RNA sequence: AAGGAAGAGGUUUUAACUACCCUCUUAAAAAAACUAAGAAGAA
Numbered sequence: 001a002a003g004g005a006a007g008a009g010g011u012u013u014u015a016a017c018u019a020c021c022c023u024c025u026u027a028a029a030a031a032a033a034c035u036a037a038g039a040a041g042a043a
Stems, first nucleotide, its partner, number of pairs: 006025005014036002
This 43-nucleotide RNA sequence from Ureibacillus massiliensis belongs to the Rfam family "PreQ1 (pre queuosine) riboswitch aptamer". The match comes from Rfam's covariance-model search (40 bits). Rfam's curators write: This family is a bacterial riboswitch that binds to the metabolite preQ1, an intermediate in the biosynthesis of the modified nucleoside queuosine from GTP. One example of this riboswitch is located in the leader of the Bacillus subtilis ykvJKLM (queCDEF) operon which encodes four genes necessary for queuosine production. The pairing is the family consensus, mapped onto this sequence. On this family, see Schroeder et al., Nucleic Acids Res 2023: "A riboswitch separated from its ribosome-binding site still regulates translation".